Rfam assigns this 96-nucleotide RNA sequence from Sphingomonas baiyangensis to the family "Bacterial small signal recognition particle RNA". The organism belongs to Sphingomonas, within Bacteria. By type it is a non-coding RNA gene. Rfam describes the family as follows. The signal recognition particle (SRP) is a universally conserved ribonucleoprotein involved in the co-translational targeting of proteins to membranes.
RNA sequence: GCGGGAGUCGGGCGGGCGUAGCCGUCGCCAACCCGGUCAGGUCCGGAAGGAAGCAGCCGCAACGAUUUUGCUGCGGGUCGUCCCGGCUCCCACCUC
Numbered sequence: 001g002c003g004g005g006a007g008u009c010g011g012g013c014g015g016g017c018g019u020a021g022c023c024g025u026c027g028c029c030a031a032c033c034c035g036g037u038c039a040g041g042u043c044c045g046g047a048a049g050g051a052a053g054c055a056g057c058c059g060c061a062a063c064g065a066u067u068u069u070g071c072u073g074c075g076g077g078u079c080g081u082c083c084c085g086g087c088u089c090c091c092a093c094c095u096c
Stems, first nucleotide, its partner, number of pairs: 003091005010083005017075006024066004034059004042051003